Background:
This 124-nucleotide sequence from Brassica oleracea belongs to the Rfam family "MIR9563 microRNA precursor family". The family has 2 seed sequences and 5,832 matches in Rfam 15.1. The match comes from Rfam's covariance-model search (98 bits). The source organism's lineage runs through Eukaryota, Brassicales, Brassicaceae, Brassica and Brassica oleracea.
[Rfam]
RNA sequence: GAAAUAUAAAAACCGUCUCUUAGUUUUUAACUAAAAAAACUAAAAACCAGCUUUUAAAUAUCUUAUUUAAGAGUCAGUUUUUAGCGUUUUUAGUUAAACGUUAAGAGACGGUUUUUUAUAUCCC
Numbered sequence: 001g002a003a004a005u006a007u008a009a010a011a012a013c014c015g016u017c018u019c020u021u022a023g024u025u026u027u028u029a030a031c032u033a034a035a036a037a038a039a040c041u042a043a044a045a046a047c048c049a050g051c052u053u054u055u056a057a058a059u060a061u062c063u064u065a066u067u068u069a070a071g072a073g074u075c076a077g078u079u080u081u082u083a084g085c086g087u088u089u090u091u092a093g094u095u096a097a098a099c100g101u102u103a104a105g106a107g108a109c110g111g112u113u114u115u116u117u118a119u120a121u122c123c124c
Base pairs, nucleotide, nucleotide: 001124004121005120006119007118008117009116010115011114012112013111014110015109016108017107018106019105020104021103022102023101024100026098027097028096029095030094031093032092033091034090035089036088037087040084041083042082043081044080045079046078